[Rfam]
RNA sequence: GACGGGGCUUGAAAGGCCUCUUUCAAAACGAUCGAAGCGCGAGCUUCCAGUAGGACGAAAGAGGAGCCGAAGUUCCGUCGUACGUUUUGAAAAACGA
Number, nucleotide and partner (000 for none) at each position: 001g079002a078003c077004g076005g075006g074007g073008c072009u071010u070011g000012a000013a000014a000015g068016g067017c000018c000019u062020c061021u060022u059023u058024c057025a000026a000027a000028a000029c053030g000031a000032u000033c000034g047035a046036a045037g044038c043039g000040c000041g000042a000043g038044c037045u036046u035047c034048c000049a000050g000051u000052a000053g029054g000055a000056c000057g024058a023059a022060a021061g020062a019063g000064g000065a000066g000067c016068c015069g000070a010071a009072g008073u007074u006075c005076c004077g003078u002079c001080g000081u000082a000083c096084g095085u094086u000087u000088u000089g000090a000091a000092a000093a000094a085095c084096g083097a000